This 225-nucleotide RNA from Cohnella luojiensis belongs to the Rfam family "Group II catalytic intron D1-D4-6". NCBI's taxonomy places the organism under Bacteria, Bacillati, Caryophanales, Paenibacillaceae, Cohnella. The match comes from Rfam's covariance-model search (154 bits). Group II introns are found in rRNA, tRNA and mRNA of organelles in fungi, plants and protists, and also in mRNA in bacteria. The base pairs follow the family's consensus structure. A reference for the family is Bonen and Vogel (2001), "The ins and outs of group II introns", Trends Genet.
[Rfam]
RNA sequence: UAAACCCUGCUUGGAAAGAUGCUAGCCACAUCACCAAUAGCGAGUCUUGGAACGGGAAUGGCAACAUUAACGUUUAAGCGUAGACAGUUAGGAUGCAGGCCUGAAAUGUGAUUGAGCCUCGAAAUGCACAAAUUGGGAAGGUCGACGGGUUCAGAAUCCCGGAAGACAACACGACUCCAGACGACAAGGGCAAGGAUGGAGAAGCUUCCCCGGGGUCGAAGAGCC
Number, nucleotide and partner (000 for none) at each position: 001u000002a000003a000004a000005c000006c000007c000008u000009g000010c000011u000012u036013g035014g034015a000016a000017a000018g032019a031020u000021g029022c000023u193024a000025g191026c190027c000028a000029c021030a000031u019032c018033a000034c014035c013036a012037a000038u090039a089040g088041c087042g000043a000044g085045u084046c083047u082048u080049g079050g075051a074052a073053c072054g071055g000056g000057a068058a067059u066060g065061g000062c000063a000064a000065c060066a059067u058068u057069a000070a000071c054072g053073u052074u051075u050076a000077a000078g000079c049080g048081u000082a047083g046084a045085c044086a000087g041088u040089u039090a038091g000092g000093a000094u000095g000096c000097a000098g000099g000100c000101c000102u000103g000104a000105a000106a000107u000108g000109u000110g000111a000112u000113u219114g217115a000116g216117c215118c214119u213120c212121g211122a000123a000124a000125u000126g000127c000128a000129c000130a000131a000132a000133u000134u000135g210136g209137g208138a207139a206140g205141g167142u166143c165144g000145a000146c161147g160148g159149g158150u000151u000152c000153a000154g000155a000156a000157u000158c149159c148160c147161g146162g000163a000164a000165g143166a142167c141168a000169a000170c000171a000172c204173g000174a000175c201176u200177c199178c198179a197180g000181a000182c194183g000184a000185c000186a000187a000188g000189g000190g026191c025192a000193a023194g182195g000196a000197u179198g178199g177200a176201g175202a000203a000204g172205c140206u139207u138208c137209c136210c135211c121212g120213g119214g118215g117216u116217c114218g000219a113220a000221g000222a000223g000224c000225c000